The family of this 281-nucleotide RNA sequence from Macaca fascicularis is "Mason-Pfizer monkey virus packaging signal". A search with the family's covariance model found it, with a score of 212 bits. A reference for the family is Harrison et al. (1995), "Secondary structure model of the Mason-Pfizer monkey virus 5' leader sequence: identification of a structural motif common to a variety of retroviruses", J Virol. NCBI's taxonomy places the organism under Eukaryota, Craniata, Tetrapoda, Amniota, Macaca. By type it is a cis-regulatory element.
RNA sequence: GUAUACCGAACAGGGACCUGGAAACGAGGGACUCCAUGAGGAAGAGGACGCCAAAGGACGGUCGACCGCUAACGAAGACAAAGGAGUCAAACUCUUCCCGAUCACCGCGGAACCUGCCACGUCAGAAUCGAAGGUAAGUGAUGCGUCCGAAAUGGGACAAGAAUUAAGCCAACAUCAAAUAUAUGUAGGACAAUUAAAAGAGGCUUUAAAGAUACGAGGAGUAAAGGUUAAAGGUAAUGAUUUGUUUAAAUUUUUUGAUUUUGUAAAAGACACUUGCCCUU
Dot-bracket structure: .....((.....................))....(.(.......).)...........................................(((..((....((..((.((......)).))...))...)).)))......((..((((...)))).)).....((((((...............................))).)))......((((((((..((((((.......))))))......))))))))........((.(.(....).).))
Numbered sequence: 001g002u003a004u005a006c007c008g009a010a011c012a013g014g015g016a017c018c019u020g021g022a023a024a025c026g027a028g029g030g031a032c033u034c035c036a037u038g039a040g041g042a043a044g045a046g047g048a049c050g051c052c053a054a055a056g057g058a059c060g061g062u063c064g065a066c067c068g069c070u071a072a073c074g075a076a077g078a079c080a081a082a083g084g085a086g087u088c089a090a091a092c093u094c095u096u097c098c099c100g101a102u103c104a105c106c107g108c109g110g111a112a113c114c115u116g117c118c119a120c121g122u123c124a125g126a127a128u129c130g131a132a133g134g135u136a137a138g139u140g141a142u143g144c145g146u147c148c149g150a151a152a153u154g155g156g157a158c159a160a161g162a163a164u165u166a167a168g169c170c171a172a173c174a175u176c177a178a179a180u181a182u183a184u185g186u187a188g189g190a191c192a193a194u195u196a197a198a199a200g201a202g203g204c205u206u207u208a209a210a211g212a213u214a215c216g217a218g219g220a221g222u223a224a225a226g227g228u229u230a231a232a233g234g235u236a237a238u239g240a241u242u243u244g245u246u247u248a249a250a251u252u253u254u255u256u257g258a259u260u261u262u263g264u265a266a267a268a269g270a271c272a273c274u275u276g277c278c279c280u281u
Stems, first nucleotide, its partner, number of pairs: 006030002035047001037045001091135003096131002102126002106121002109118002142159002146156004165208003168204003215257008225243006266281002269278001271276001